RNA sequence: UGGAGGACUGAGAAAGUUGAGCAGCUUGUGUUGUGCUGUUCUGACUGGUUAUAACCUCCAAGAGUAACAAACAAACCAUGCAAGUUAAGUGGCUCUGUCAUAAUCAGAGCUAAUGUGUGUGUGAUUGUGAACAAAAU
Numbered sequence: 001u002g003g004a005g006g007a008c009u010g011a012g013a014a015a016g017u018u019g020a021g022c023a024g025c026u027u028g029u030g031u032u033g034u035g036c037u038g039u040u041c042u043g044a045c046u047g048g049u050u051a052u053a054a055c056c057u058c059c060a061a062g063a064g065u066a067a068c069a070a071a072c073a074a075a076c077c078a079u080g081c082a083a084g085u086u087a088a089g090u091g092g093c094u095c096u097g098u099c100a101u102a103a104u105c106a107g108a109g110c111u112a113a114u115g116u117g118u119g120u121g122u123g124a125u126u127g128u129g130a131a132c133a134a135a136a137u
Base pairs, nucleotide, nucleotide: 002059003058004057005056006055015046016045017044018043019041020040021039022038023037024036025035079129080128081127084125085124087122089120090119091118
The record is a 137-nucleotide RNA sequence from Mola mola, which matches "Small nucleolar RNA SNORA47" in Rfam. Its family is annotated with RNA processing and nucleolus in the Gene Ontology. NCBI's taxonomy places the organism under Eukaryota, Euteleostomi, Clupeocephala, Euacanthomorphacea, Mola.